[Rfam]
RNA sequence: AAGUUUCUGAGGGCGGAACAGGCAGCCGCCACCCGUUGUUAGGAGAUGUAGGAAGGUCACCCUACCUAAACUU
Numbered sequence: 001a002a003g004u005u006u007c008u009g010a011g012g013g014c015g016g017a018a019c020a021g022g023c024a025g026c027c028g029c030c031a032c033c034c035g036u037u038g039u040u041a042g043g044a045g046a047u048g049u050a051g052g053a054a055g056g057u058c059a060c061c062c063u064a065c066c067u068a069a070a071c072u073u
Base pairs, nucleotide, nucleotide: 001073002072003071004070005069006068009066012030013029014028015027016026021058022057023056032043048065049064050063051062052061
RNA: skipping-rope RNA